[Rfam]
RNA sequence: GCCCUCCGGAUGAAGUGGUCCUAAACAUUUCACAAUUAUGGUACAGAACUGUUGAACUGUUAAGAACCACUGCACCCAAG
Numbered sequence: 001g002c003c004c005u006c007c008g009g010a011u012g013a014a015g016u017g018g019u020c021c022u023a024a025a026c027a028u029u030u031c032a033c034a035a036u037u038a039u040g041g042u043a044c045a046g047a048a049c050u051g052u053u054g055a056a057c058u059g060u061u062a063a064g065a066a067c068c069a070c071u072g073c074a075c076c077c078a079a080g
Stems, first nucleotide, its partner, number of pairs: 014071006021064002024061004029056004